[Rfam]
RNA sequence: ACAAAUUUACCUUGCAGGCGAGACCCUAUCAAUAUUGCCUCUGCUUUUUUCAACUGUAAUUGUAGUAGUGCAAUAUUGCUUAUAGGGUCUUGACUUUAAGGCAUA
Number, nucleotide and partner (000 for none) at each position: 001a000002c000003a000004a000005a000006u000007u000008u000009a000010c000011c000012u000013u000014g000015c000016a000017g000018g000019c000020g091021a090022g089023a088024c087025c086026c085027u084028a083029u082030c078031a077032a076033u075034a074035u073036u072037g071038c070039c000040u000041c068042u067043g066044c065045u064046u000047u000048u000049u000050u000051c000052a000053a000054c000055u000056g000057u000058a000059a000060u000061u000062g000063u000064a045065g044066u043067a042068g041069u000070g038071c037072a036073a035074u034075a033076u032077u031078g030079c000080u000081u000082a029083u028084a027085g026086g025087g024088u023089c022090u021091u020092g000093a000094c000095u000096u000097u000098a000099a000100g000101g000102c000103a000104u000105a000